[Rfam]
RNA sequence: GAAAGUAGGUGAGGCGAUUGCAGGCUAGAGUGGAGCGAAUCGUUCCCUCCGGCUUGAGGAAAGUCCGGGCUCCCGAAAGACCAGACUUGCUGGGUAACGCCCAGUGCGGGCGACCGUGAGGAGAGUGCCACAGAAACAUACCGCCGAUGGUGGGGAUGGUUUCAUCCCUUCACAGGUAAGGGUGCAAAGGUGCGGUAAGAGCGCACCAGCAGCAUCGAGAGGUGCUGGCUCGGUAAACCCCGGUUGGGUGCAAGGUCGAAGGAACGACGGUUGGUCUUUUACCGGUUCCGCCGAAAAGAACCGCUCGAGGUGCUUGGUAACAAGCGUCCCAGAUAGAUAAUUGCCCUCUUGGCUGUGUUCGGCUAGGAGAACAGAACCCGGCUUACGACUGCUUUCUCUA
Numbered sequence: 001g002a003a004a005g006u007a008g009g010u011g012a013g014g015c016g017a018u019u020g021c022a023g024g025c026u027a028g029a030g031u032g033g034a035g036c037g038a039a040u041c042g043u044u045c046c047c048u049c050c051g052g053c054u055u056g057a058g059g060a061a062a063g064u065c066c067g068g069g070c071u072c073c074c075g076a077a078a079g080a081c082c083a084g085a086c087u088u089g090c091u092g093g094g095u096a097a098c099g100c101c102c103a104g105u106g107c108g109g110g111c112g113a114c115c116g117u118g119a120g121g122a123g124a125g126u127g128c129c130a131c132a133g134a135a136a137c138a139u140a141c142c143g144c145c146g147a148u149g150g151u152g153g154g155g156a157u158g159g160u161u162u163c164a165u166c167c168c169u170u171c172a173c174a175g176g177u178a179a180g181g182g183u184g185c186a187a188a189g190g191u192g193c194g195g196u197a198a199g200a201g202c203g204c205a206c207c208a209g210c211a212g213c214a215u216c217g218a219g220a221g222g223u224g225c226u227g228g229c230u231c232g233g234u235a236a237a238c239c240c241c242g243g244u245u246g247g248g249u250g251c252a253a254g255g256u257c258g259a260a261g262g263a264a265c266g267a268c269g270g271u272u273g274g275u276c277u278u279u280u281a282c283c284g285g286u287u288c289c290g291c292c293g294a295a296a297a298g299a300a301c302c303g304c305u306c307g308a309g310g311u312g313c314u315u316g317g318u319a320a321c322a323a324g325c326g327u328c329c330c331a332g333a334u335a336g337a338u339a340a341u342u343g344c345c346c347u348c349u350u351g352g353c354u355g356u357g358u359u360c361g362g363c364u365a366g367g368a369g370a371a372c373a374g375a376a377c378c379c380g381g382c383u384u385a386c387g388a389c390u391g392c393u394u395u396c397u398c399u400a
Base pairs, nucleotide, nucleotide: 001396002395003394004393005392006391007390008389010387011386013345014344015343016342017341018340019339021056022055023054024053025052026051028049029048061384062383063382065381066380067379068378069377070250072248073247079280080279084245085244086243088242089241090104091103092102093101094100105119106117107116108115109114120240121239125238126237127234128233129232141181142180143177144176145175148172149171150170189207190206191205192204193203194202209229210227211226212225213224214223215222216221254302255301256300257298266291269288270287271285272284273283274282275281309328310327311326312325313324314323315322316321
RNA: Bacterial RNase P class A